This 150-nucleotide RNA sequence from Pseudogracilibacillus auburnensis belongs to the Rfam family "FMN riboswitch aptamer (RFN element)".

RNA sequence: UUUCAUUUUCGGGGCAGGGCGUAAUUCCCGACCGACGGUAAAAAGUUAUCAUAACUUUAAGCCCGUGACCUGCUAUUUAUUUUAUAAAUAGUGGCUGAUCUGGUGUAAGUCCAGAGCCGACAGUUAUAGUCUGGAUGGGAGAAGAUGAAG
Numbered sequence: 001u002u003u004c005a006u007u008u009u010c011g012g013g014g015c016a017g018g019g020c021g022u023a024a025u026u027c028c029c030g031a032c033c034g035a036c037g038g039u040a041a042a043a044a045g046u047u048a049u050c051a052u053a054a055c056u057u058u059a060a061g062c063c064c065g066u067g068a069c070c071u072g073c074u075a076u077u078u079a080u081u082u083u084a085u086a087a088a089u090a091g092u093g094g095c096u097g098a099u100c101u102g103g104u105g106u107a108a109g110u111c112c113a114g115a116g117c118c119g120a121c122a123g124u125u126a127u128a129g130u131c132u133g134g135a136u137g138g139g140a141g142a143a144g145a146u147g148a149a150g
Stems, first nucleotide, its partner, number of pairs: 003148008017029003031130002033119002035066004061117002070094004099115005121133003

The source organism's lineage runs through Bacteria, Bacillota, Bacilli, Caryophanales and Pseudogracilibacillus. Gene Ontology term of the family: FMN binding.